RAGATH-28 RNA: an 85-nucleotide sequence. Rfam's curators put it in the seed alignment. By type it is a small RNA.
Nucleotides: 085
Stems, first nucleotide, its partner, number of pairs: 001022006053074004057068002
Number, partner (000 for none) and nucleotide at each position: 001022g002021g003020c004019c005018g006017g007000u008000u009000g010000a011000u012000u013000c014000g015000u016000c017006c018005c019004g020003g021002c022001c023000u024000g025000u026000g027000g028000a029000a030000c031000g032000g033000g034000u035000g036000a037000a038000c039000a040000g041000g042000a043000g044000a045000c046000g047000g048000a049000a050000a051000c052000c053074c054073c055072g056071a057068g058067c059000c060000a061000a062000a063000u064000g065000c066000g067058g068057c069000g070000g071056u072055c073054g074053g075000a076000a077000u078000g079000g080000c081000g082000a083000a084000g085000c